[Rfam]
RNA sequence: CCCUGUUCUGCGGGAGAGAGAGGCCUUCGCCUCCGCCGAAGGCGCAAGCUCCCAUAAUCGCUCAGGCACACCAAACCGCAGAAGCAAU
Numbered sequence: 001c002c003c004u005g006u007u008c009u010g011c012g013g014g015a016g017a018g019a020g021a022g023g024c025c026u027u028c029g030c031c032u033c034c035g036c037c038g039a040a041g042g043c044g045c046a047a048g049c050u051c052c053c054a055u056a057a058u059c060g061c062u063c064a065g066g067c068a069c070a071c072c073a074a075a076c077c078g079c080a081g082a083a084g085c086a087a088u
Base pairs, nucleotide, nucleotide: 006083007082008081009080010079011078012077013076020033021032022031023030035067036066037065038063039062042061043060044059048055
A member of the RNA family "Glycine riboswitch aptamer" from Azohydromonas caseinilytica, 88 nucleotides long. From the family's description: This family represents the bacterial glycine riboswitch. A search with the family's covariance model found it, with a score of 58 bits.